[Rfam]
RNA: Streptomyces RNA 1601
Organism: Streptomyces candidus
Nucleotides: 217
Stems, first nucleotide, its partner, number of pairs: 004090006012027002028083005034060002037057004041052002062077006095132005103125008143210006149202003159197003162193005168187005
Number, partner (000 for none) and nucleotide at each position: 001000c002000a003000c004090g005089a006088c007087c008086g009085g010000c011000u012027g013026g014000g015000c016000a017000c018000u019000c020000c021000u022000g023000u024000g025000c026013c027012c028083g029082g030081c031080c032079c033000a034060c035059a036000a037057g038056u039055g040054g041052a042051g043000g044000c045000u046000c047000c048000g049000a050000u051042c052041u053000c054040c055039c056038a057037c058000c059035u060034g061000a062077c063076c064075g065074u066073c067072c068000c069000c070000c071000g072067g073066g074065a075064c076063g077062g078000c079032g080031g081030g082029u083028c084000a085009c086008c087007g088006g089005u090004c091000a092000g093000a094000a095132g096131a097130c098129g099128g100000u101000a102000c103125c104124c105123a106122u107121c108120g109119u110118u111000c112000c113000g114000u115000a116000c117000g118110g119109a120108c121107g122106a123105u124104g125103g126000a127000a128099c129098u130097g131096u132095c133000c134000g135000a136000u137000g138000u139000g140000c141000g142000c143210g144209c145208c146207c147206c148205g149202c150201g151200g152000u153000u154000u155000u156000a157000g158000a159197c160196g161195c162193g163192g164191c165190g166189g167000u168187g169186c170185u171184c172183c173000g174000g175000u176000a177000u178000u179000u180000c181000c182000a183172g184171g185170a186169g187168c188000c189166c190165u191164g192163c193162c194000u195161g196160u197159g198000u199000c200151c201150c202149g203000u204000c205148c206147g207146g208145g209144g210143c211000a212000u213000u214000u215000u216000u217000u